The record is a 208-nucleotide RNA from Oryza nivara, which matches "MIR812 microRNA precursor family" in Rfam. Rfam 15.1 lists 57,451 matches to the family in 24 species. Rfam links the family to the GO terms RISC complex and miRNA-mediated post-transcriptional gene silencing. It scores 149 bits against the family's covariance model.

[Rfam]
RNA sequence: UUUAAGUGCAGUUAUGAAUUUUGUAUCCAACAUUUGACCGUUUAUCUUAUUUAAAAUUUUUUAUGAAUAAUAUUUUUAUUACUAUUAAUUAGAUGAUAAAACAUGAAUAGUCUUUUAUGCGUGACUUAUUUUUUUAAUUUUUUCAUAAAUUUUUUAAAUAAGAUAGACGGUUAAAUGUUAGACAUGGAGAUCCACAACUGCACUUAAA
Numbered sequence: 001u002u003u004a005a006g007u008g009c010a011g012u013u014a015u016g017a018a019u020u021u022u023g024u025a026u027c028c029a030a031c032a033u034u035u036g037a038c039c040g041u042u043u044a045u046c047u048u049a050u051u052u053a054a055a056a057u058u059u060u061u062u063a064u065g066a067a068u069a070a071u072a073u074u075u076u077u078a079u080u081a082c083u084a085u086u087a088a089u090u091a092g093a094u095g096a097u098a099a100a101a102c103a104u105g106a107a108u109a110g111u112c113u114u115u116u117a118u119g120c121g122u123g124a125c126u127u128a129u130u131u132u133u134u135u136a137a138u139u140u141u142u143u144c145a146u147a148a149a150u151u152u153u154u155u156a157a158a159u160a161a162g163a164u165a166g167a168c169g170g171u172u173a174a175a176u177g178u179u180a181g182a183c184a185u186g187g188a189g190a191u192c193c194a195c196a197a198c199u200g201c202a203c204u205u206a207a208a
Base pairs, nucleotide, nucleotide: 026182027181029179030178031177033175034174035173036172037171038170039169040168041167042166043165044164045163046162047161048160049159050158051157052156